[Rfam]
RNA sequence: CGGGACGCCGGCCGGAAGGAAGCCGCUAGCAAAACUGCGAGCUGAUGAAGACUAGGCGUCCCCCAAGAACAACAUAUGAGGCGUAGGCUGGAGGCGAGAUGGCACAAGACAUCGAAGCCACGUGAUCUAACGGCCACCGUAAAUAUGGGGGACGCCUAGUCCAGUUGUGCAGUGAAAGUUAAUGUU
Numbered sequence: 001c002g003g004g005a006c007g008c009c010g011g012c013c014g015g016a017a018g019g020a021a022g023c024c025g026c027u028a029g030c031a032a033a034a035c036u037g038c039g040a041g042c043u044g045a046u047g048a049a050g051a052c053u054a055g056g057c058g059u060c061c062c063c064c065a066a067g068a069a070c071a072a073c074a075u076a077u078g079a080g081g082c083g084u085a086g087g088c089u090g091g092a093g094g095c096g097a098g099a100u101g102g103c104a105c106a107a108g109a110c111a112u113c114g115a116a117g118c119c120a121c122g123u124g125a126u127c128u129a130a131c132g133g134c135c136a137c138c139g140u141a142a143a144u145a146u147g148g149g150g151g152a153c154g155c156c157u158a159g160u161c162c163a164g165u166u167g168u169g170c171a172g173u174g175a176a177a178g179u180u181a182a183u184g185u186u
Base pairs, nucleotide, nucleotide: 022186024184025183029179030178034173035172036171037170038169039168040166041165042164043163044162070148072146074144075143081140082139083138086135087134088133089132090131093119094118095117098113099112100111101110
RNA: Group II catalytic intron D1-D4-3
Organism: Oleiphilus messinensis